This 107-nucleotide RNA sequence from Dichanthelium oligosanthes belongs to the Rfam family "Small nucleolar RNA Z194". The family has 5 seed sequences and 65 matches in Rfam 15.1. Gene Ontology terms of the family: nucleolus and RNA processing. By type it is a C/D-box small nucleolar RNA. It scores 90 bits against the family's covariance model. The literature on the family includes a 2003 paper in Nucleic Acids Res by Chen et al., "The high diversity of snoRNAs in plants: identification and comparative study of 120 snoRNA genes from Oryza sativa". Lineage of the source: Eukaryota > Tracheophyta > Poales > Panicodae > Dichanthelium.
RNA sequence: GGCAGAUUGAUGAUGAAACAAUUACCCCAAGCGCUUUAUUCCGCUGAUUCCAGUGUGAUGGAAAGCUAUGGAAACAUAGCUUUUGUGGUUUUCAAUCUGAAACAUCU
Number, nucleotide and partner (000 for none) at each position: 001g000002g000003c000004a107005g106006a105007u104008u000009g000010a000011u000012g000013a000014u000015g000016a000017a000018a000019c000020a000021a000022u000023u000024a000025c000026c000027c000028c000029a000030a045031g044032c043033g042034c000035u000036u000037u000038a000039u000040u000041c000042c033043g032044c031045u030046g000047a000048u000049u000050c000051c000052a000053g000054u000055g000056u000057g000058a000059u000060g000061g084062a083063a082064a081065g080066c079067u078068a077069u076070g075071g000072a000073a000074a000075c070076a069077u068078a067079g066080c065081u064082u063083u062084u061085g000086u000087g000088g000089u000090u000091u000092u000093c000094a000095a000096u000097c000098u000099g000100a000101a000102a000103c000104a007105u006106c005107u004